[Rfam]
The family of this 115-nucleotide RNA sequence from Chelonia mydas is "U5 spliceosomal RNA".
Rfam links the family to the GO terms spliceosomal tri-snRNP complex assembly and U5 snRNP.
Lineage of the source: Eukaryota > Craniata > Amniota > Testudines > Chelonia.
A search with the family's covariance model found it, with a score of 83 bits.
By type it is a spliceosomal small nuclear RNA.
The base pairs follow the family's consensus structure, which is taken from published work.
RNA sequence: UGAGCCGGUUUCUCUUCCAAUCGUAUAAAUCUUUUGCCUUUUACUAAAGAUUUCCGUGGAGAGGAACAUUUAUGAGUUUCUACCCAAUUUUUUUGUGAAACUUUUUUAAGAGCCC
Numbered sequence: 001u002g003a004g005c006c007g008g009u010u011u012c013u014c015u016u017c018c019a020a021u022c023g024u025a026u027a028a029a030u031c032u033u034u035u036g037c038c039u040u041u042u043a044c045u046a047a048a049g050a051u052u053u054c055c056g057u058g059g060a061g062a063g064g065a066a067c068a069u070u071u072a073u074g075a076g077u078u079u080c081u082a083c084c085c086a087a088u089u090u091u092u093u094u095g096u097g098a099a100a101c102u103u104u105u106u107u108a109a110g111a112g113c114c115c
Stems, first nucleotide, its partner, number of pairs: 003077001006074001008067010027053008095115001097114001101110002